Background:
Rfam assigns this 106-nucleotide sequence from Oceanobacillus indicireducens to the family "SAM riboswitch aptamer (S box leader)". It scores 78 bits against the family's covariance model. The base pairs follow the family's consensus structure, which is taken from published work. Lineage of the source: Bacteria > Bacillati > Bacilli > Bacillaceae > Oceanobacillus.

RNA sequence: UUCUUAUUCAGAGCUGGUGGAGGGACAGACCCGGUGAAGCCCAGCAACCUCACGAUUUGUGAAAGGUGCUAAUCUGUUGCAAGGAAUUUUCCUUGAACAAUAAGAG
Numbered sequence: 001u002u003c004u005u006a007u008u009c010a011g012a013g014c015u016g017g018u019g020g021a022g023g024g025a026c027a028g029a030c031c032c033g034g035u036g037a038a039g040c041c042c043a044g045c046a047a048c049c050u051c052a053c054g055a056u057u058u059g060u061g062a063a064a065g066g067u068g069c070u071a072a073u074c075u076g077u078u079g080c081a082a083g084g085a086a087u088u089u090u091c092c093u094u095g096a097a098c099a100a101u102a103a104g105a106g
Stems, first nucleotide, its partner, number of pairs: 001106008013042001016041003022032003026079003029075001043070004048066002050062004080095006